[Rfam]
RNA sequence: UAGCUCAGCAGGCGACGUUGCGGGCCCUGGGCGCCAGGAGAGCUUCCCGGAGUCGACCUUACUACUGGGUGCUCUGUGACCGUUUCCCGGCUCUGCUCUCUUGGCCGAAGUGCCCGCUGCGGCGCGCGGGCCUCAGGUAACGGUGGU
Numbered sequence: 001u002a003g004c005u006c007a008g009c010a011g012g013c014g015a016c017g018u019u020g021c022g023g024g025c026c027c028u029g030g031g032c033g034c035c036a037g038g039a040g041a042g043c044u045u046c047c048c049g050g051a052g053u054c055g056a057c058c059u060u061a062c063u064a065c066u067g068g069g070u071g072c073u074c075u076g077u078g079a080c081c082g083u084u085u086c087c088c089g090g091c092u093c094u095g096c097u098c099u100c101u102u103g104g105c106c107g108a109a110g111u112g113c114c115c116g117c118u119g120c121g122g123c124g125c126g127c128g129g130g131c132c133u134c135a136g137g138u139a140a141c142g143g144u145g146g147u
Base pairs, nucleotide, nucleotide: 013017034090035089037087038086039085041084042083043082045079046078048076049075050074051073052072054071055070057068058067103132104131105130106129110127111126112125113124115122
RNA: Human acetyl-coA cholesterol acyltransferase mRNA
Organism: Pongo abelii